mir-190_2 microRNA precursor family: a 121-nucleotide RNA sequence from Schistosoma mansoni. The organism belongs to Schistosoma, within Eukaryota. Its family is annotated with RISC complex and miRNA-mediated post-transcriptional gene silencing in the Gene Ontology. The base pairs follow the family's consensus structure, which was predicted with RNAalifold.
RNA sequence: CGAUAGUAGACUAGUCGAUGUGAUAUGUAUGGGUUACUUGGUGUCAGCGGAUAACAUAUUGUGUUCGCUAUUAAAACACACCAGUGACCAGACAUAUCCCUAUCGCAUAGUUUAGAUCAUC
Number, nucleotide and partner (000 for none) at each position: 001c000002g118003a117004u116005a000006g000007u114008a113009g112010a111011c110012u109013a108014g000015u000016c105017g104018a103019u102020g101021u000022g098023a097024u096025a095026u094027g093028u092029a000030u000031g000032g089033g088034u087035u086036a085037c084038u083039u000040g082041g081042u080043g079044u078045c000046a069047g068048c067049g066050g065051a064052u063053a062054a000055c000056a000057u000058a000059u000060u000061g000062u053063g052064u051065u050066c049067g048068c047069u046070a000071u000072u000073a000074a000075a000076a000077c000078a044079c043080a042081c041082c040083a038084g037085u036086g035087a034088c033089c032090a000091g000092a028093c027094a026095u025096a024097u023098c022099c000100c000101u020102a019103u018104c017105g016106c000107a000108u013109a012110g011111u010112u009113u008114a007115g000116a004117u003118c002119a000120u000121c000